[Rfam]
RNA sequence: AUCCCUUCUGUCAUGUACCCACGAUUAGUGCAGCCUUAGAUGCUUCA
Numbered sequence: 001a002u003c004c005c006u007u008c009u010g011u012c013a014u015g016u017a018c019c020c021a022c023g024a025u026u027a028g029u030g031c032a033g034c035c036u037u038a039g040a041u042g043c044u045u046c047a
Stems, first nucleotide, its partner, number of pairs: 010025003032044003